[Rfam]
RNA sequence: GCAGAGGGCUGGAUGGCCGCGGGUGGCAACAUCCGAGGAAAGUCCGGACUCCACAAGGCAACGGUGCCGGGUAACGCCCGGCCGGGGAAACCCGAGGGAAAGCGCCACAGAAAACAGACCGCCUUCGUUCGCGAAGGUAAGGGUGAAACGGUGGGGUAAGAGCCCACCGCGGGACUGGCAACAGGACCGGCACGGCAAGCCCCACCGGGAGCAAUGCCAAAUAGGGAUCGCGCGUGGUUUCGGCUACAGGGGGGUUUUGCCCCGAGCAGAUCCGGGUUGGCAGCUAGAGGGCGUCUGGUAACAGGCGCUCAAGAUGAAUGGUCAUCAUCGGCAGGGUAACCUGCCGUUACAAAAUCCGGCUUAUAGGCCCUCUGCGCAU
Numbered sequence: 001g002c003a004g005a006g007g008g009c010u011g012g013a014u015g016g017c018c019g020c021g022g023g024u025g026g027c028a029a030c031a032u033c034c035g036a037g038g039a040a041a042g043u044c045c046g047g048a049c050u051c052c053a054c055a056a057g058g059c060a061a062c063g064g065u066g067c068c069g070g071g072u073a074a075c076g077c078c079c080g081g082c083c084g085g086g087g088a089a090a091c092c093c094g095a096g097g098g099a100a101a102g103c104g105c106c107a108c109a110g111a112a113a114a115c116a117g118a119c120c121g122c123c124u125u126c127g128u129u130c131g132c133g134a135a136g137g138u139a140a141g142g143g144u145g146a147a148a149c150g151g152u153g154g155g156g157u158a159a160g161a162g163c164c165c166a167c168c169g170c171g172g173g174a175c176u177g178g179c180a181a182c183a184g185g186a187c188c189g190g191c192a193c194g195g196c197a198a199g200c201c202c203c204a205c206c207g208g209g210a211g212c213a214a215u216g217c218c219a220a221a222u223a224g225g226g227a228u229c230g231c232g233c234g235u236g237g238u239u240u241c242g243g244c245u246a247c248a249g250g251g252g253g254g255u256u257u258u259g260c261c262c263c264g265a266g267c268a269g270a271u272c273c274g275g276g277u278u279g280g281c282a283g284c285u286a287g288a289g290g291g292c293g294u295c296u297g298g299u300a301a302c303a304g305g306c307g308c309u310c311a312a313g314a315u316g317a318a319u320g321g322u323c324a325u326c327a328u329c330g331g332c333a334g335g336g337u338a339a340c341c342u343g344c345c346g347u348u349a350c351a352a353a354a355u356c357c358g359g360c361u362u363a364u365a366g367g368c369c370c371u372c373u374g375c376g377c378a379u
Base pairs, nucleotide, nucleotide: 001375002374003373004372005371006370007369008368009367010366011364012326013325014324015323016322017321018320020035021034022033023032024031025030040362041361042360044359045358046357047356048355049211050210051209052208057258058257060255062207063206064205065204066203067081068080069079070078071077082096083094084093085092086091097202098201102200103199104196105195106194119142120141121138122137123136124135125134126133127132150168151167152166153165154164155163169191170189171188172187175184176183177182215282216281217280218279225273226272227271228270229269249263250262251261252260290309291308292307293306294305295304296303297302